[Rfam]
The record is a 102-nucleotide sequence from Abrus precatorius, which matches "MIR394 microRNA precursor family" in Rfam. It scores 87 bits against the family's covariance model. NCBI's taxonomy places the organism under Eukaryota, Streptophyta, Mesangiospermae, Papilionoideae, Abrus. Pairs were carried over by alignment from the consensus structure, which was predicted with WAR.
RNA sequence: CUCACAGAGUUUAUUGGCAUUCUGUCCACCUCCACUCUCUCUCUCUCUCUCUUCAUCAAUACAUAUGCGGAGGUGGGCAUACUGCCAACUAAGCUCUGUUGG
Numbered sequence: 001c002u003c004a005c006a007g008a009g010u011u012u013a014u015u016g017g018c019a020u021u022c023u024g025u026c027c028a029c030c031u032c033c034a035c036u037c038u039c040u041c042u043c044u045c046u047c048u049c050u051c052u053u054c055a056u057c058a059a060u061a062c063a064u065a066u067g068c069g070g071a072g073g074u075g076g077g078c079a080u081a082c083u084g085c086c087a088a089c090u091a092a093g094c095u096c097u098g099u100u101g102g
Base pairs, nucleotide, nucleotide: 011092014088015087016086017085018084019083023079024078025077026076027075028074029073030072031071032070033069
Dot-bracket structure: ..........(..((((((...(((((((((((...................................)))))))))))...))))))...)..........